A member of the RNA family "Small Cajal body specific RNA 6" from Penelope pileata, 269 nucleotides long. Rfam 15.1 lists 1,309 matches to the family in 627 species. Rfam links the family to the GO terms RNA processing and nucleolus. The source organism's lineage runs through Eukaryota, Euteleostomi, Archelosauria, Coelurosauria and Penelope. The family's RNA type in Rfam is small Cajal body RNA. U88 is small Cajal body specific RNA (scaRNA). scaRNAs are a novel class of small nuclear RNAs which localise to the Cajal bodies.
RNA sequence: GGUCGAUGAUGACUAGUAAAAGGUCUGAUUGCACAGGGGAAUUGCACACCAUUACCCUCAGCUCCCAGCAGUCCUUGUUGUGUCAUGCCAUAGUAGAGCUAUGACUGAGAAAGAGAUUGCUGACAGUUUGGGAUUAAUUCAGUUCCAGUUCUCCACAGUGAAGGGAGUUUUGAUGCUGAAUGUCAUCCAACAGAACUGGUUAAAAGGAGCUUGUGGUAGUGGGGUGUCUUCAUUGGUUGUGUGUGAUCUAAAGUUUUCAAGCUGAGACC
Number, nucleotide and partner (000 for none) at each position: 001g269002g268003u267004c266005g000006a000007u000008g000009a000010u000011g000012a000013c000014u000015a000016g000017u000018a000019a000020a000021a000022g000023g000024u000025c000026u000027g000028a000029u000030u000031g000032c000033a000034c000035a249036g248037g247038g000039g000040a000041a000042u000043u000044g000045c223046a000047c221048a220049c219050c000051a217052u000053u000054a000055c000056c000057c000058u000059c000060a000061g000062c209063u208064c207065c206066c122067a121068g120069c119070a118071g117072u116073c000074c000075u000076u000077g000078u000079u108080g000081u000082g105083u104084c103085a102086u101087g100088c098089c000090a000091u000092a000093g000094u000095a000096g000097a000098g088099c000100u087101a086102u085103g084104a083105c082106u000107g000108a079109g000110a000111a000112a000113g000114a000115g000116a072117u071118u070119g069120c068121u067122g066123a000124c000125a000126g000127u000128u000129u000130g188131g000132g187133a186134u185135u000136a183137a000138u000139u000140c000141a000142g000143u000144u000145c000146c172147a171148g170149u000150u000151c167152u166153c165154c164155a000156c000157a000158g000159u000160g000161a000162a000163g000164g154165g153166a152167g151168u000169u000170u148171u147172g146173a000174u000175g000176c000177u000178g000179a000180a000181u000182g000183u136184c000185a134186u133187c132188c130189a000190a000191c000192a000193g000194a000195a000196c000197u000198g000199g000200u000201u000202a000203a000204a000205a000206g065207g064208a063209g062210c000211u000212u000213g000214u000215g000216g000217u051218a000219g049220u048221g047222g000223g045224g000225u000226g000227u000228c000229u000230u000231c000232a000233u000234u000235g000236g000237u000238u000239g000240u000241g000242u000243g000244u000245g000246a000247u037248c036249u035250a000251a000252a000253g000254u000255u000256u000257u000258c000259a000260a000261g000262c000263u000264g000265a000266g004267a003268c002269c001